[Rfam]
RNA: Mammalian CPEB3 ribozyme
RNA sequence: AAUCUAUGAAUAAUGGCCAUAGCAGAAGCGUCCACAUCAUAGCCUGGUCCAAUUCUAAUGAAUUUGUGAAUUCAACU
Numbered sequence: 001a002a003u004c005u006a007u008g009a010a011u012a013a014u015g016g017c018c019a020u021a022g023c024a025g026a027a028g029c030g031u032c033c034a035c036a037u038c039a040u041a042g043c044c045u046g047g048u049c050c051a052a053u054u055c056u057a058a059u060g061a062a063u064u065u066g067u068g069a070a071u072u073c074a075a076c077u
Stems, first nucleotide, its partner, number of pairs: 013045001015044003021077002025073003028040001030038001049066001051064005